Overview:
Shown here is a 200-nucleotide RNA sequence from Lodderomyces parapsilosis, a member of the family "Small nucleolar RNA snR32". Pairs were carried over by alignment from the consensus structure, which was predicted with WAR. Lineage of the source: Eukaryota > Fungi > saccharomyceta > Pichiomycetes > Lodderomyces. It scores 85 bits against the family's covariance model.
[Rfam]
RNA sequence: AACAUCAAUCGCGGAUUCACCCUUUGUAUCAAAGAGUUGACGGUUUAGCUCUUUUUUCUAGAUCGAUGAUUUGUCAACUUUUGAAGGAUUUACAAGUGAAUAAAAAAGCGUAGAUAAACCUUUAAUGGAGCACGUUUCUGGGCGCCUGAUGUUGACUAUAUUUUAAAAUGGGACAUUGGGAAUCAGUUGUGACUACAAUU
Numbered sequence: 001a002a003c004a005u006c007a008a009u010c011g012c013g014g015a016u017u018c019a020c021c022c023u024u025u026g027u028a029u030c031a032a033a034g035a036g037u038u039g040a041c042g043g044u045u046u047a048g049c050u051c052u053u054u055u056u057u058c059u060a061g062a063u064c065g066a067u068g069a070u071u072u073g074u075c076a077a078c079u080u081u082u083g084a085a086g087g088a089u090u091u092a093c094a095a096g097u098g099a100a101u102a103a104a105a106a107a108g109c110g111u112a113g114a115u116a117a118a119c120c121u122u123u124a125a126u127g128g129a130g131c132a133c134g135u136u137u138c139u140g141g142g143c144g145c146c147u148g149a150u151g152u153u154g155a156c157u158a159u160a161u162u163u164u165a166a167a168a169u170g171g172g173a174c175a176u177u178g179g180g181a182a183u184c185a186g187u188u189g190u191g192a193c194u195a196c197a198a199u200u
Base pairs, nucleotide, nucleotide: 010110011109012108017103019101021098023096024095025094026093032053033052034051035050038047039046040045054087055086056085057084058083060081061080062079130193132190133189134188145180146179149176150175151174152173153172156171157170158169159168161167